About this RNA: Shown here is a 91-nucleotide RNA sequence from Propithecus coquereli, a member of the family "mir-544 microRNA precursor family".
[Rfam]
RNA sequence: AUCACCUGGGGGUCUUGUUAAAAGGCAGAUUCUGAAUCAGUAGGUGAGGCCCGGAAUUCUGCAUUUAUGACAAGCCGCUGGGUGAUGCCAA
Numbered sequence: 001a002u003c004a005c006c007u008g009g010g011g012g013u014c015u016u017g018u019u020a021a022a023a024g025g026c027a028g029a030u031u032c033u034g035a036a037u038c039a040g041u042a043g044g045u046g047a048g049g050c051c052c053g054g055a056a057u058u059c060u061g062c063a064u065u066u067a068u069g070a071c072a073a074g075c076c077g078c079u080g081g082g083u084g085a086u087g088c089c090a091a
Base pairs, nucleotide, nucleotide: 003084004083005082009078011076014074015073016072017071018070019069020068021066022065023064025062026061027060028059029058031056033054